[Rfam]
RNA sequence: UAUGAUACUUCUGUUUUGAACGCUUCACCGCAUUGAACAGCCCGGCAGGAUGACCGGGAGAACGCAUCACCCUCGUUUGAGAAAGAAUGAGGGGCGGCUUUU
Numbered sequence: 001u002a003u004g005a006u007a008c009u010u011c012u013g014u015u016u017u018g019a020a021c022g023c024u025u026c027a028c029c030g031c032a033u034u035g036a037a038c039a040g041c042c043c044g045g046c047a048g049g050a051u052g053a054c055c056g057g058g059a060g061a062a063c064g065c066a067u068c069a070c071c072c073u074c075g076u077u078u079g080a081g082a083a084a085g086a087a088u089g090a091g092g093g094g095c096g097g098c099u100u101u102u
Base pairs, nucleotide, nucleotide: 011040012039013038014037015036041058042057043056044055045054059102060101061100062099064098065097072091073090074089075088076087
Shown here is a 102-nucleotide RNA from Lacrimispora saccharolytica, a member of the family "dinG RNA". Taxonomically the source falls in Lacrimispora saccharolytica (Bacteria, Bacillota, Lachnospirales, Lacrimispora). The sequence is in the family's curated seed alignment. Rfam classes the family as a small RNA.